SAM riboswitch aptamer (S box leader): a 106-nucleotide RNA sequence from Pontibacillus chungwhensis. Taxonomically the source falls in Pontibacillus chungwhensis (Bacteria, Bacillati, Bacilli, Caryophanales). It scores 88 bits against the family's covariance model. Pairs were carried over by alignment from the consensus structure, which is taken from published work.
[Rfam]
Nucleotides: 106
Base pairs, nucleotide, nucleotide: 001106002105003104004103005102006101007100008099013042014041015040016039017038021031022030023029027074028073043068044067045066046065048064049063050061051060052059053058072098077095078094079093080092081091082090
Number, partner (000 for none) and nucleotide at each position: 001106u002105u003104c004103u005102u006101a007100u008099c009000a010000a011000g012000a013042g014041u015040g016039a017038c018000c019000g020000a021031g022030g023029g024000a025000g026000a027074g028073g029023c030022c031021c032000g033000u034000u035000g036000a037000c038017g039016u040015c041014a042013c043068a044067g045066c046065a047000a048064c049063c050061u051060u052059c053058c054000u055000g056000a057000u058053g059052g060051a061050g062000u063049g064048g065046u066045g067044c068043u069000a070000a071000u072098u073028c074027c075000g076000g077095c078094a079093g080092a081091a082090u083000g084000a085000a086000a087000c088000a089000c090082a091081u092080u093079c094078u095077g096000g097000g098072a099008g100007a101006u102005a103004a104003g105002g106001g